[Rfam]
RNA sequence: GUUUCCGUAGCUCAGCAGGAUAGAGCGACCGCCUCCUAAGCGGUAGGCCGUGGGUUCGAAUCCCGCCGGGAACG
Numbered sequence: 001g002u003u004u005c006c007g008u009a010g011c012u013c014a015g016c017a018g019g020a021u022a023g024a025g026c027g028a029c030c031g032c033c034u035c036c037u038a039a040g041c042g043g044u045a046g047g048c049c050g051u052g053g054g055u056u057c058g059a060a061u062c063c064c065g066c067c068g069g070g071a072a073c074g
Stems, first nucleotide, its partner, number of pairs: 001073007010026004028044005050066005
Rfam assigns this 74-nucleotide RNA sequence from Vallitalea pronyensis to the family "tRNA". It scores 67 bits against the family's covariance model. Rfam links the family to the GO term triplet codon-amino acid adaptor activity. The organism belongs to Vallitalea, within Bacteria.